Rfam assigns this 58-nucleotide sequence to the family "Streptococcus sRNA SpF59 (ldcC RNA)". The literature on the family includes a 2012 paper in PLoS Pathog by Mann et al., "Control of virulence by small RNAs in Streptococcus pneumoniae". By type it is a small RNA.

RNA sequence: UGACCACUUCGCCGCAUGGCGGAGAGUUGUGGAAACGGACAGCCCGGUCAAAUGCCGA
Numbered sequence: 001u002g003a004c005c006a007c008u009u010c011g012c013c014g015c016a017u018g019g020c021g022g023a024g025a026g027u028u029g030u031g032g033a034a035a036c037g038g039a040c041a042g043c044c045c046g047g048u049c050a051a052a053u054g055c056c057g058a
Base pairs, nucleotide, nucleotide: 001050002049003048004047005046007024008023009022010021011020012019013018